Rfam assigns this 45-nucleotide sequence from Aquisalimonas sp. 2447 to the family "Guanidine-II riboswitch aptamer (mini-ykkC)". From the family's description: Simpler in structure and has fewer highly conserved nucleotide positions than the ykkC-yxkD leader. Despite this each of its two stem-loop structures directly bind free guanidine. Therefore, mini-ykkC RNA motif represents a distinct class of guanidine-sensing RNAs. NCBI's taxonomy places the organism under Bacteria, Pseudomonadati, Chromatiales, Ectothiorhodospiraceae, Aquisalimonas. The match comes from Rfam's covariance-model search (41 bits).

RNA sequence: CCAGGGACGACCCUGGCGCAAGCACCAUGCUGCGGGACGACCCGC
Numbered sequence: 001c002c003a004g005g006g007a008c009g010a011c012c013c014u015g016g017c018g019c020a021a022g023c024a025c026c027a028u029g030c031u032g033c034g035g036g037a038c039g040a041c042c043c044g045c
Stems, first nucleotide, its partner, number of pairs: 001016006032045005